[Rfam]
RNA sequence: CCUCUGGAGAGACUCGAAUAGAGCACCGAAGGAGCAAAAUGGAGCUGGCUCAAAAUAGAGAAUGAAUAAUUAAUUUUGAAAUUCCAGUAGGAUUUUUAAAGGAAAAUUAUUCUUAAUUCUUAAUUGAGUAAGACAGUUACAUUGAAACUCUCAGGUAAAAGGACAGGGG
Numbered sequence: 001c002c003u004c005u006g007g008a009g010a011g012a013c014u015c016g017a018a019u020a021g022a023g024c025a026c027c028g029a030a031g032g033a034g035c036a037a038a039a040u041g042g043a044g045c046u047g048g049c050u051c052a053a054a055a056u057a058g059a060g061a062a063u064g065a066a067u068a069a070u071u072a073a074u075u076u077u078g079a080a081a082u083u084c085c086a087g088u089a090g091g092a093u094u095u096u097u098a099a100a101g102g103a104a105a106a107u108u109a110u111u112c113u114u115a116a117u118u119c120u121u122a123a124u125u126g127a128g129u130a131a132g133a134c135a136g137u138u139a140c141a142u143u144g145a146a147a148c149u150c151u152c153a154g155g156u157a158a159a160a161g162g163a164c165a166g167g168g169g
Stems, first nucleotide, its partner, number of pairs: 001169006013023003025156003028152002032150003038143004

Rfam assigns this 169-nucleotide sequence from Clostridium sartagoforme to the family "Glycine riboswitch aptamer". Its family is annotated with glycine biosynthetic process in the Gene Ontology.